[Rfam]
RNA sequence: UUUGUGCCGCUUCUCUUGGUUCAUGCUCAUGAGCUCGUUUUUGGUUCUUGAGCUUUGGAAGGUGAAGCAAAAGUCUCAAUGGUUCCUCUCGCUAUCCGGUGCAGAAUUUCUUUUGAUGCUACUGGACGUCGAGGAACUAUAUUU
Numbered sequence: 001u002u003u004g005u006g007c008c009g010c011u012u013c014u015c016u017u018g019g020u021u022c023a024u025g026c027u028c029a030u031g032a033g034c035u036c037g038u039u040u041u042u043g044g045u046u047c048u049u050g051a052g053c054u055u056u057g058g059a060a061g062g063u064g065a066a067g068c069a070a071a072a073g074u075c076u077c078a079a080u081g082g083u084u085c086c087u088c089u090c091g092c093u094a095u096c097c098g099g100u101g102c103a104g105a106a107u108u109u110c111u112u113u114u115g116a117u118g119c120u121a122c123u124g125g126a127c128g129u130c131g132a133g134g135a136a137c138u139a140u141a142u143u144u
Stems, first nucleotide, its partner, number of pairs: 001072001002070003008064005015058002018055002025053005031047002034043001082137007090128002095126005106114001
RNA: Small nucleolar RNA snoR136
Organism: Panicum virgatum